[Rfam]
RNA sequence: GGGGGCCUGAACCUGGCAUACAAUGUAGAUUUCUGUGUUGUUCGAUCUACAGCUACAUUGUCUGCUGGGUUUCAGGUCCCCUGC
Numbered sequence: 001g002g003g004g005g006c007c008u009g010a011a012c013c014u015g016g017c018a019u020a021c022a023a024u025g026u027a028g029a030u031u032u033c034u035g036u037g038u039u040g041u042u043c044g045a046u047c048u049a050c051a052g053c054u055a056c057a058u059u060g061u062c063u064g065c066u067g068g069g070u071u072u073c074a075g076g077u078c079c080c081c082u083g084c
Stems, first nucleotide, its partner, number of pairs: 013068006020061009033052004